The record is a 117-nucleotide sequence from Sporomusa silvacetica, which matches "Group II catalytic intron D1-D4-2" in Rfam. The literature on the family includes a 2001 paper in EMBO J by Chu et al., "Control of branch-site choice by a group II intron". Pairs were carried over by alignment from the consensus structure. From the family's description: Group II introns are found in rRNA, tRNA and mRNA of organelles in fungi, plants and protists, and also in mRNA in bacteria. Taxonomically the source falls in Sporomusa silvacetica (Bacteria, Negativicutes, Sporomusaceae, Sporomusa).

RNA sequence: GGAGGAAGGCCCUCCGAACCGCCAUUCAGGUGGAGGACUCAAACCACCGUAAGCUGCUGUGGACAAAAGUCAUGGUAGUGAGCGUUACGGAAAAGGCGAACCAAGAGUUUGUCAGGU
Numbered sequence: 001g002g003a004g005g006a007a008g009g010c011c012c013u014c015c016g017a018a019c020c021g022c023c024a025u026u027c028a029g030g031u032g033g034a035g036g037a038c039u040c041a042a043a044c045c046a047c048c049g050u051a052a053g054c055u056g057c058u059g060u061g062g063a064c065a066a067a068a069g070u071c072a073u074g075g076u077a078g079u080g081a082g083c084g085u086u087a088c089g090g091a092a093a094a095g096g097c098g099a100a101c102c103a104a105g106a107g108u109u110u111g112u113c114a115g116g117u
Base pairs, nucleotide, nucleotide: 001015002014003013004012005011016040017039019036020035022033023032024031025030045116047090048089049088050087051086052085053079054078056076057075058074060072061071062070095113096112097111098110099109100108